[Rfam]
RNA sequence: CCAGACGGCCGGACGGUCGCGGCGCGGGCUUGCCCGCGUCGAGGAAAGUCCGGGCUCCACGGUGAAGAGGCGGCGGAUAACCUCCGCCCGGGGCGACCCGAGGGAUAGCGCCACAGAAAGCAAACUGCCCUCCGAAGCCUCGGCGGAGGAGGGUGAGGGUGAAAGGGUGGGGUAAGAGCCCACCGCGUCGCUGGUGACAGGGACGGCAUGGCAAGCCCCGCCUGGAGCAAGACCGAAUAGGGGCGUCGCGCGGACUUCGGUCCGCAGGGUUCACCGCCCGAGACGCCCGGGUAGGUCGCGAGAACCGUCCAGUAAUGGCCGGUCCAGAGGAAUGAUCGUCGCCUGCUUCGGCAGGAACAGAACCCGGCUUACUGGCCGUCUGGCAUU
Number, nucleotide and partner (000 for none) at each position: 001c383002c382003a381004g380005a379006c378007g377008g376009c375010c374011g372012g340013a339014c338015g337016g336017u335018c334019g000020c041021g040022g039023c038024g037025c036026g035027g034028g033029c000030u000031u000032g000033c028034c027035c026036g025037c024038g023039u022040c021041g020042a000043g000044g000045a000046a370047a369048g368049u000050c367051c366052g365053g364054g363055c227056u226057c225058c224059a000060c000061g000062g275063u000064g000065a000066a000067g000068a223069g222070g221071c220072g219073g087074c086075g085076g084077a083078u000079a000080a000081c000082c000083u077084c076085c075086g074087c073088c102089c100090g099091g098092g097093g000094c000095g000096a000097c092098c091099c090100g089101a000102g088103g218104g217105a000106u000107a000108g216109c215110g212111c211112c210113a000114c000115a000116g000117a000118a000119a000120g000121c000122a000123a000124a000125c158126u157127g154128c153129c152130c151131u150132c149133c148134g000135a000136a000137g000138c000139c000140u000141c000142g000143g000144c000145g000146g000147a000148g133149g132150a131151g130152g129153g128154u127155g000156a000157g126158g125159g000160u000161g000162a000163a000164a000165g000166g184167g183168u182169g181170g180171g179172g000173u000174a000175a000176g000177a000178g000179c171180c170181c169182a168183c167184c166185g207186c205187g204188u203189c202190g000191c200192u199193g198194g000195u000196g000197a000198c193199a192200g191201g000202g189203a188204c187205g186206g000207c185208a000209u000210g112211g111212c110213a000214a000215g109216c108217c104218c103219c072220g071221c070222c069223u068224g058225g057226a056227g055228c000229a000230a000231g297232a296233c295234c294235g000236a000237a000238u000239a000240g000241g288242g287243g286244c285245g284246u283247c000248g000249c000250g000251c000252g000253g000254a000255c000256u000257u000258c000259g000260g000261u000262c000263c000264g000265c000266a000267g279268g278269g277270u276271u000272c000273a000274c000275c062276g270277c269278c268279c267280g000281a000282g000283a246284c245285g244286c243287c242288c241289g000290g000291g000292u000293a000294g234295g233296u232297c231298g000299c000300g000301a000302g000303a000304a323305c322306c321307g320308u000309c318310c317311a316312g000313u000314a000315a000316u311317g310318g309319c000320c307321g306322g305323u304324c000325c000326a000327g000328a000329g000330g000331a000332a000333u000334g018335a017336u016337c015338g014339u013340c012341g000342c000343c000344u000345g000346c000347u000348u000349c000350g000351g000352c000353a000354g000355g000356a000357a000358c000359a000360g000361a000362a000363c054364c053365c052366g051367g050368c048369u047370u046371a000372c011373u000374g010375g009376c008377c007378g006379u005380c004381u003382g002383g001384c000385a000386u000387u000